[Rfam]
RNA: RpsF leader
RNA sequence: GGUUAUUUUUCUUUAGUUCCUUGCUUCUCCUGGAUGACCGAGCCAAAUAGAGAAGCUGAAUAAUCCGUAAGGAGCAACCCAUG
Numbered sequence: 001g002g003u004u005a006u007u008u009u010u011c012u013u014u015a016g017u018u019c020c021u022u023g024c025u026u027c028u029c030c031u032g033g034a035u036g037a038c039c040g041a042g043c044c045a046a047a048u049a050g051a052g053a054a055g056c057u058g059a060a061u062a063a064u065c066c067g068u069a070a071g072g073a074g075c076a077a078c079c080c081a082u083g
Base pairs, nucleotide, nucleotide: 016075017074018073019072020071021070022069023056024055025054026053027052028051031045032044033043